About this RNA
A. fumigatus sRNA Afu_309: a 282-nucleotide RNA sequence from Alternaria atra. The match comes from Rfam's covariance-model search (92 bits). On this family, see Jochl et al., Nucleic Acids Res 2008: "Small ncRNA transcriptome analysis from Aspergillus fumigatus suggests a novel mechanism for regulation of protein synthesis". The family has 10 seed sequences and 663 matches in Rfam 15.1.

[Rfam]
RNA sequence: CUCACCACAACGACCUGUGUCAGCGUCUCCCGUCCACGUCCUUCGGGGUGUGUGAUGGUUGAGACUCUGACAGUUCGUCCACCAUGGAACUCUCUUUUCUUUUGUAGAGCGUUUCGGACGACAGGUGGCGGAGAACAACUUUGGCAGCUUCCGGCAGCCUGAGCUCACCCUUCACGGGGUUUGAGCUCGGUGUAUGGUUGUCUGUCAGGCAGACUGAUUCCGUUUCCCUUUUGCUAGGCCGUCGGCCACUGAUGCUUGGGACUAACCCAGUCGGCUACAUGC
Numbered sequence: 001c002u003c004a005c006c007a008c009a010a011c012g013a014c015c016u017g018u019g020u021c022a023g024c025g026u027c028u029c030c031c032g033u034c035c036a037c038g039u040c041c042u043u044c045g046g047g048g049u050g051u052g053u054g055a056u057g058g059u060u061g062a063g064a065c066u067c068u069g070a071c072a073g074u075u076c077g078u079c080c081a082c083c084a085u086g087g088a089a090c091u092c093u094c095u096u097u098u099c100u101u102u103u104g105u106a107g108a109g110c111g112u113u114u115c116g117g118a119c120g121a122c123a124g125g126u127g128g129c130g131g132a133g134a135a136c137a138a139c140u141u142u143g144g145c146a147g148c149u150u151c152c153g154g155c156a157g158c159c160u161g162a163g164c165u166c167a168c169c170c171u172u173c174a175c176g177g178g179g180u181u182u183g184a185g186c187u188c189g190g191u192g193u194a195u196g197g198u199u200g201u202c203u204g205u206c207a208g209g210c211a212g213a214c215u216g217a218u219u220c221c222g223u224u225u226c227c228c229u230u231u232u233g234c235u236a237g238g239c240c241g242u243c244g245g246c247c248a249c250u251g252a253u254g255c256u257u258g259g260g261a262c263u264a265a266c267c268c269a270g271u272c273g274g275c276u277a278c279a280u281g282c
Stems, first nucleotide, its partner, number of pairs: 011128001013126006019071005026064004030058005035052002038049004079120001082117002086113002090109002138205002143202006158190002161188006167180005209275002212272005225261004233255002237247004